RNA sequence: GGGUCCCAAACACAGAAAUCGCUUGGCAGAAGCGGGGGAACCACAUGCGGUCCCGUCCACCGGGACCUAGGGGUUAAGUCGUUCGGAGCGCGUGCGCUCCGCGGCCGGGUGUCUCCCACCCGCAUCCGACAGCUCACCUCGUAGGCAAAGGGAGGAACA
Numbered sequence: 001g002g003g004u005c006c007c008a009a010a011c012a013c014a015g016a017a018a019u020c021g022c023u024u025g026g027c028a029g030a031a032g033c034g035g036g037g038g039a040a041c042c043a044c045a046u047g048c049g050g051u052c053c054c055g056u057c058c059a060c061c062g063g064g065a066c067c068u069a070g071g072g073g074u075u076a077a078g079u080c081g082u083u084c085g086g087a088g089c090g091c092g093u094g095c096g097c098u099c100c101g102c103g104g105c106c107g108g109g110u111g112u113c114u115c116c117c118a119c120c121c122g123c124a125u126c127c128g129a130c131a132g133c134u135c136a137c138c139u140c141g142u143a144g145g146c147a148a149a150g151g152g153a154g155g156a157a158c159a
Stems, first nucleotide, its partner, number of pairs: 004147001006145002013029001032142006042070001071127003079104004107121004